Record summary: Rfam assigns this 504-nucleotide part of an RNA from Meloidogyne incognita to the family "Eukaryotic large subunit ribosomal RNA". The family's consensus secondary structure is taken from published work. The sequence is in the family's curated seed alignment.
[Rfam]
RNA sequence: CCCUCUGAAGUUUCCCCCAGGAUAGCUGGAGCUCACGAGUAGUUAUACUCGGUAAAGCGAAUGAUUAGAGGACUUGGGAACGAAAUGUUCUUAACCUAUUCUCAAACUCUAAAUGGGUAUGAUAUCAAAGUUGCUUGAUUUUGAACUUUGGCGUUGAAUACGAGCUCCAAGUGGGCCAUUUUUGGUAAGCAGAACUGGCGAUGUGGGAUGAACCAAACGCGGAGUUGCGGUGCCAAAGUGCCCGCUCAUUAGACCCCAUAAAAGGUGUUGGUUGAUACAGACAGCAGGACGGUGGCCAUGGAAGUCGGAAUCCGCUAAGGAGUGUGUAACAACUCACCUGCCGAAUCAACUAGCCCUGAAAAUGGAUGGCGCUGGAGCGGGCCACCUAUACUCUGCCGUCAUAUGCUUGUAUUUUUAAGUCUUGCAAUGACGUGUAAGAGGGUCGUAGUGGUUGCGUUGAAGGCUUUGGGUGUGCACCCAGCUGGAGCUUCCACUAGUGCAGAU
Numbered sequence: 001c002c003c004u005c006u007g008a009a010g011u012u013u014c015c016c017c018c019a020g021g022a023u024a025g026c027u028g029g030a031g032c033u034c035a036c037g038a039g040u041a042g043u044u045a046u047a048c049u050c051g052g053u054a055a056a057g058c059g060a061a062u063g064a065u066u067a068g069a070g071g072a073c074u075u076g077g078g079a080a081c082g083a084a085a086u087g088u089u090c091u092u093a094a095c096c097u098a099u100u101c102u103c104a105a106a107c108u109c110u111a112a113a114u115g116g117g118u119a120u121g122a123u124a125u126c127a128a129a130g131u132u133g134c135u136u137g138a139u140u141u142u143g144a145a146c147u148u149u150g151g152c153g154u155u156g157a158a159u160a161c162g163a164g165c166u167c168c169a170a171g172u173g174g175g176c177c178a179u180u181u182u183u184g185g186u187a188a189g190c191a192g193a194a195c196u197g198g199c200g201a202u203g204u205g206g207g208a209u210g211a212a213c214c215a216a217a218c219g220c221g222g223a224g225u226u227g228c229g230g231u232g233c234c235a236a237a238g239u240g241c242c243c244g245c246u247c248a249u250u251a252g253a254c255c256c257c258a259u260a261a262a263a264g265g266u267g268u269u270g271g272u273u274g275a276u277a278c279a280g281a282c283a284g285c286a287g288g289a290c291g292g293u294g295g296c297c298a299u300g301g302a303a304g305u306c307g308g309a310a311u312c313c314g315c316u317a318a319g320g321a322g323u324g325u326g327u328a329a330c331a332a333c334u335c336a337c338c339u340g341c342c343g344a345a346u347c348a349a350c351u352a353g354c355c356c357u358g359a360a361a362a363u364g365g366a367u368g369g370c371g372c373u374g375g376a377g378c379g380g381g382c383c384a385c386c387u388a389u390a391c392u393c394u395g396c397c398g399u400c401a402u403a404u405g406c407u408u409g410u411a412u413u414u415u416u417a418a419g420u421c422u423u424g425c426a427a428u429g430a431c432g433u434g435u436a437a438g439a440g441g442g443u444c445g446u447a448g449u450g451g452u453u454g455c456g457u458u459g460a461a462g463g464c465u466u467u468g469g470g471u472g473u474g475c476a477c478c479c480a481g482c483u484g485g486a487g488c489u490u491c492c493a494c495u496a497g498u499g500c501a502g503a504u
Stems, first nucleotide, its partner, number of pairs: 001442006011024001013022003027169007043122008055110001056108002062104003067099001069097003074094006081087001125151008175199004180194005204215003219396005225390001229386003238383001240382001243379003263357003267354010284341005290314003296308002315319001320335001324333002397432006404426003444499001446496006454488002462483002469478003